This 52-nucleotide RNA sequence from Roseicyclus mahoneyensis belongs to the Rfam family "serC leader".
RNA sequence: CGGUGGGACACCCUUCCCCAACGAAGGGCACAUAUCUGAGAGGGUAUCAGAU
Numbered sequence: 001c002g003g004u005g006g007g008a009c010a011c012c013c014u015u016c017c018c019c020a021a022c023g024a025a026g027g028g029c030a031c032a033u034a035u036c037u038g039a040g041a042g043g044g045u046a047u048c049a050g051a052u
Stems, first nucleotide, its partner, number of pairs: 011028006032047006
The literature on the family includes a 2005 paper in Genome Biol by Corbino et al., "Evidence for a second class of S-adenosylmethionine riboswitches and other regulatory RNA motifs in alpha-proteobacteria". Rfam describes the family as follows. This family is a putative regulatory RNA structure that is found upstream of the serC-serA operon in some alpha-proteobacteria. The final stem of the structure overlaps the ribosome binding site of the serC reading frame. Rfam classes the family as a cis-regulatory leader.